The family of this 91-nucleotide sequence from Gallus gallus is "mir-7 microRNA precursor family". Rfam's curators put it in the seed alignment. A reference for the family is Ambros (2001), "microRNAs: tiny regulators with great potential", Cell. Rfam links the family to the GO terms miRNA-mediated post-transcriptional gene silencing and RISC complex. The base pairs follow the family's consensus structure, which was predicted with PFOLD. This family represents the microRNA (miRNA) precursor mir-7. Taxonomically the source falls in Gallus (Eukaryota, Opisthokonta, Dipnotetrapodomorpha, Dinosauria).
[Rfam]
RNA sequence: GGCCGCGGUGCCCUCUGGAAGACUAGUGAUUUUGUUGUUGUAUGGCUCAUCCCACCACAACAAGUCACAGUCUGCCUUAGGGCGCACGGCC
Numbered sequence: 001g002g003c004c005g006c007g008g009u010g011c012c013c014u015c016u017g018g019a020a021g022a023c024u025a026g027u028g029a030u031u032u033u034g035u036u037g038u039u040g041u042a043u044g045g046c047u048c049a050u051c052c053c054a055c056c057a058c059a060a061c062a063a064g065u066c067a068c069a070g071u072c073u074g075c076c077u078u079a080g081g082g083c084g085c086a087c088g089g090c091c
Stems, first nucleotide, its partner, number of pairs: 002090004008085002011082004017076002020073005026068007034061005